This 88-nucleotide sequence from Nyctereutes procyonoides belongs to the Rfam family "mir-8799 microRNA precursor family".
The family has 7 seed sequences and 20,638 matches in Rfam 15.1.
Pairs were carried over by alignment from the consensus structure, which was predicted with RNAalifold.

RNA sequence: GGGGGAGGCUGGAUCCUGGGUUGUGUCCCGGUGCCCUGUGCUCGGGGGCCUGCGCUGUUGGAUUCUCGCUCCCGCCCCGCAGCCCCAU
Numbered sequence: 001g002g003g004g005g006a007g008g009c010u011g012g013a014u015c016c017u018g019g020g021u022u023g024u025g026u027c028c029c030g031g032u033g034c035c036c037u038g039u040g041c042u043c044g045g046g047g048g049c050c051u052g053c054g055c056u057g058u059u060g061g062a063u064u065c066u067c068g069c070u071c072c073c074g075c076c077c078c079g080c081a082g083c084c085c086c087a088u
Base pairs, nucleotide, nucleotide: 002086003085004084005083008080009079011076012075016074018072019071020070022068023067025065026062027061028060029057030056031055032054033053034052038050040049041048042047